[Rfam]
RNA sequence: CCUCCUCUUCUUGGCGGGGCCUGGCAUGUAGUCCCAGUCCCCGUAAUAUAUGGAGGCAGAGGGUAGGGGCUCCUGCCCCCUUGGCAGCAUGUCUCCGGUGCCAAUGGUUUCCAGUCCGCCGGUUCUAUCCUCAAGCGCCGGGACACGG
Numbered sequence: 001c002c003u004c005c006u007c008u009u010c011u012u013g014g015c016g017g018g019g020c021c022u023g024g025c026a027u028g029u030a031g032u033c034c035c036a037g038u039c040c041c042c043g044u045a046a047u048a049u050a051u052g053g054a055g056g057c058a059g060a061g062g063g064u065a066g067g068g069g070c071u072c073c074u075g076c077c078c079c080c081u082u083g084g085c086a087g088c089a090u091g092u093c094u095c096c097g098g099u100g101c102c103a104a105u106g107g108u109u110u111c112c113a114g115u116c117c118g119c120c121g122g123u124u125c126u127a128u129c130c131u132c133a134a135g136c137g138c139c140g141g142g143a144c145a146c147g148g
Base pairs, nucleotide, nucleotide: 001056002055003054004053005052015043016042017041018040019039022036023035024034082140083139084138085137101122102121105118106117107116
A member of the RNA family "Small nucleolar RNA SNORA57" from Myotis davidii, 148 nucleotides long. From the family's description: U99 belongs to the H/ACA class of snoRNAs which are thought to guide the sites of modification of uridines to pseudouridines, the target for this family is unknown. A search with the family's covariance model found it, with a score of 130 bits. For this family Rfam cites "Identification of 13 novel human modification guide RNAs" (Vitali et al., Nucleic Acids Res, 2003).